[Rfam]
The record is a 68-nucleotide RNA from Spermophilus dauricus, which matches "mir-4680 microRNA precursor family" in Rfam. NCBI's taxonomy places the organism under Eukaryota, Tetrapoda, Rodentia, Sciuromorpha, Spermophilus. The family's consensus secondary structure was predicted with RNAalifold. The match comes from Rfam's covariance-model search (81 bits).
RNA sequence: UAUAAGAACUCUUGCAGUCUUAGAUGUUAUAAAAAAAUAUGUAUCUGAAUUGUAAGAGUUAUUAGAUU
Dot-bracket structure: ...((.((((((((((((.((((((((.(((......))))))))))))))))))))))).)).....